The family of this 122-nucleotide RNA is "LOOT RNA".

[Rfam]
RNA sequence: AGCCUAACCCUUAUUUUAAAAAAAUAAGGUAUGGUGAAAGAAACCGUUCAGAGUAUCAAGCUCCUCGUCAGAGCACUCUGAACGGUCGUAUCUGGAAACGGGUAUGGGUGACUUCGGUCAUU
Numbered sequence: 001a002g003c004c005u006a007a008c009c010c011u012u013a014u015u016u017u018a019a020a021a022a023a024a025u026a027a028g029g030u031a032u033g034g035u036g037a038a039a040g041a042a043a044c045c046g047u048u049c050a051g052a053g054u055a056u057c058a059a060g061c062u063c064c065u066c067g068u069c070a071g072a073g074c075a076c077u078c079u080g081a082a083c084g085g086u087c088g089u090a091u092c093u094g095g096a097a098a099c100g101g102g103u104a105u106g107g108g109u110g111a112c113u114u115c116g117g118u119c120a121u122u
Stems, first nucleotide, its partner, number of pairs: 002035003009029009044085011060074004087106008107122006
Rfam's curators put it in the seed alignment.